[Rfam]
RNA sequence: UAUAAGCUGUACAACUGGCGGAAAGCAUAUAUAGAAUAUCAGAUAGAGCAUUCAGCAUGGUGUUGAAGUAUGUAUCAUUGCAUUGAAGUAAGUAUAUGUGGUGGGAUUACCCACAGGGAGUACAGUAAUAAUAUGUUUAUCAGCCGACCGCCUGGGCAACCCUG
Numbered sequence: 001u002a003u004a005a006g007c008u009g010u011a012c013a014a015c016u017g018g019c020g021g022a023a024a025g026c027a028u029a030u031a032u033a034g035a036a037u038a039u040c041a042g043a044u045a046g047a048g049c050a051u052u053c054a055g056c057a058u059g060g061u062g063u064u065g066a067a068g069u070a071u072g073u074a075u076c077a078u079u080g081c082a083u084u085g086a087a088g089u090a091a092g093u094a095u096a097u098g099u100g101g102u103g104g105g106a107u108u109a110c111c112c113a114c115a116g117g118g119a120g121u122a123c124a125g126u127a128a129u130a131a132u133a134u135g136u137u138u139a140u141c142a143g144c145c146g147a148c149c150g151c152c153u154g155g156g157c158a159a160c161c162c163u164g
Base pairs, nucleotide, nucleotide: 006126007125008124009123010122011121012120015117016116017152018151019150020149021148101114102113103112104111143157144156145155
Dot-bracket structure: .....(((((((..(([[[[[...............................................................................((((......)))).))..)))))))................(((..]]]]]..))).......

About this RNA:
This 164-nucleotide RNA belongs to the Rfam family "ZMP/ZTP riboswitch aptamer (pfl RNA motif)". Rfam 15.1 lists 3,295 matches to the family in 2,545 species. A reference for the family is Kim et al. (2015), "An ancient riboswitch class in bacteria regulates purine biosynthesis and one-carbon metabolism", Mol Cell. The sequence is in the family's curated seed alignment.